This 127-nucleotide RNA sequence from Castor canadensis belongs to the Rfam family "Small nucleolar RNA SNORA40".
The match comes from Rfam's covariance-model search (74 bits).
The organism belongs to Castor, within Eukaryota.
A reference for the family is Ofengand and Bakin (1997), "Mapping to nucleotide resolution of pseudouridine residues in large subunit ribosomal RNAs from representative eukaryotes, prokaryotes, archaebacteria, mitochondria and chloroplasts", J Mol Biol.
Rfam describes the family as follows. The snoRNA ACA 40 belongs to the H/ACA family of snoRNAs and guides the pseudouridylation of 28S rRNA subunit at position U4565. NB This family has a high threshold value to exclude a large number of closely related sequences that do not appear to have conserved H and ACA boxes, and may be pseudogenes.
Its family is annotated with nucleolus and RNA processing in the Gene Ontology.

[Rfam]
RNA sequence: AGCAUUUGGGUGUGUUCUUUUGUUUAACUUGUGACCAAAGAUGUAUAGACAGGUACAAAACUAAAUCCUCUUUCACAAGCUAGACUCAUUGUUAAUAUGAGUUUUGAUACAUAUAAGGAGGAAUACU
Numbered sequence: 001a002g003c004a005u006u007u008g009g010g011u012g013u014g015u016u017c018u019u020u021u022g023u024u025u026a027a028c029u030u031g032u033g034a035c036c037a038a039a040g041a042u043g044u045a046u047a048g049a050c051a052g053g054u055a056c057a058a059a060a061c062u063a064a065a066u067c068c069u070c071u072u073u074c075a076c077a078a079g080c081u082a083g084a085c086u087c088a089u090u091g092u093u094a095a096u097a098u099g100a101g102u103u104u105u106g107a108u109a110c111a112u113a114u115a116a117g118g119a120g121g122a123a124u125a126c127u
Base pairs, nucleotide, nucleotide: 002056004054005053006052007051008050011047014042015041018040019039020038021037022036028033065124066123068121069120071118072117073116075114081106082105083104084102085101086100087099088098089097